[Rfam]
RNA sequence: ACAAAGGCUCUUUUUAGAGCCACCCACUUCACCUUUAAAAGAACG
Numbered sequence: 001a002c003a004a005a006g007g008c009u010c011u012u013u014u015u016a017g018a019g020c021c022a023c024c025c026a027c028u029u030c031a032c033c034u035u036u037a038a039a040a041g042a043a044c045g
Base pairs, nucleotide, nucleotide: 006021007020008019009018010017011016
This 45-nucleotide RNA from Triplophysa tibetana belongs to the Rfam family "Histone 3' UTR stem-loop".
It is annotated as a cis-regulatory element.
Pairs were carried over by alignment from the consensus structure, which is taken from published work.